[Rfam]
RNA: Potassium channel RNA editing signal
RNA sequence: GUGGGUUAUGGAGAUAUGCGACCUAUCGGGGUGUGGGGUAAGCUUGUAGGUUCUUUGUGUGCCAUUGCUGGAGUGCUGACAAUUGCUUUGCCAGUUCCUGUUAUAGUUUCCAAC
Numbered sequence: 001g002u003g004g005g006u007u008a009u010g011g012a013g014a015u016a017u018g019c020g021a022c023c024u025a026u027c028g029g030g031g032u033g034u035g036g037g038g039u040a041a042g043c044u045u046g047u048a049g050g051u052u053c054u055u056u057g058u059g060u061g062c063c064a065u066u067g068c069u070g071g072a073g074u075g076c077u078g079a080c081a082a083u084u085g086c087u088u089u090g091c092c093a094g095u096u097c098c099u100g101u102u103a104u105a106g107u108u109u110c111c112a113a114c
Stems, first nucleotide, its partner, number of pairs: 001114002004111002008107002011104001013102004018097001020095001037077004049063003
Dot-bracket structure: ((.((..((.(.((((.(.(................((((........(((.........)))..........)))).................).).)))).).))..)).))